[Rfam]
Shown here is a 128-nucleotide sequence from Cylicocyclus nassatus, a member of the family "Nematode snoRNA ceN39". The family's consensus secondary structure was predicted with RNAalifold.
RNA sequence: UGGGCGGAUAGGAACCAGAUAACGCAUCUGCGCUAUUUGGGCCGAAAACCGCCGAAAUAAAUUGAUGUUUCAAAGGUCGUAUGUGCCACAUUUUGGUGGCAUGUAUAUUACCGAGAUAUCAUACAGCU
Numbered sequence: 001u002g003g004g005c006g007g008a009u010a011g012g013a014a015c016c017a018g019a020u021a022a023c024g025c026a027u028c029u030g031c032g033c034u035a036u037u038u039g040g041g042c043c044g045a046a047a048a049c050c051g052c053c054g055a056a057a058u059a060a061a062u063u064g065a066u067g068u069u070u071c072a073a074a075g076g077u078c079g080u081a082u083g084u085g086c087c088a089c090a091u092u093u094u095g096g097u098g099g100c101a102u103g104u105a106u107a108u109u110a111c112c113g114a115g116a117u118a119u120c121a122u123a124c125a126g127c128u
Stems, first nucleotide, its partner, number of pairs: 003053005011043002015040007023032003064120008075112003079106002082103008
Notes:
The match comes from Rfam's covariance-model search (62 bits). Lineage of the source: Eukaryota > Ecdysozoa > Chromadorea > Strongyloidea > Cylicocyclus.